[Rfam]
RNA sequence: UAGCUAGGUCUAUGCAACAGAGAAUCACGAACUCCGCCAGGCCUGGAAGGGAGCAACGGUAGUGACACUCUCUGUGUGCGUAGGUUGCCUAGCUACCAU
Numbered sequence: 001u002a003g004c005u006a007g008g009u010c011u012a013u014g015c016a017a018c019a020g021a022g023a024a025u026c027a028c029g030a031a032c033u034c035c036g037c038c039a040g041g042c043c044u045g046g047a048a049g050g051g052a053g054c055a056a057c058g059g060u061a062g063u064g065a066c067a068c069u070c071u072c073u074g075u076g077u078g079c080g081u082a083g084g085u086u087g088c089c090u091a092g093c094u095a096c097c098a099u
Stems, first nucleotide, its partner, number of pairs: 004092005009084006015076001017075006025065004034059003042051003